Rfam assigns this 81-nucleotide sequence from Bradyrhizobium sp. BTAi1 to the family "Group II catalytic intron D1-D4-1". The pairing is the family consensus, mapped onto this sequence. About the family: Group II introns are found in rRNA, tRNA and mRNA of organelles in fungi, plants and protists, and also in mRNA in bacteria. The family has 237 seed sequences and 2,508 matches in Rfam 15.1. Lineage of the source: Bacteria > Pseudomonadati > Alphaproteobacteria > Nitrobacteraceae > Bradyrhizobium.

RNA sequence: CUGAGGUCGUCGUAAGGCGGCCGGAUCGCGGCGCAGAAGUCAGCAGAGGGCGUAGUAGGCGGUAGCGUGCCGCUAAAGGCC
Numbered sequence: 001c002u003g004a005g006g007u008c009g010u011c012g013u014a015a016g017g018c019g020g021c022c023g024g025a026u027c028g029c030g031g032c033g034c035a036g037a038a039g040u041c042a043g044c045a046g047a048g049g050g051c052g053u054a055g056u057a058g059g060c061g062g063u064a065g066c067g068u069g070c071c072g073c074u075a076a077a078g079g080c081c
Stems, first nucleotide, its partner, number of pairs: 001024002005022007040047002049081003058074006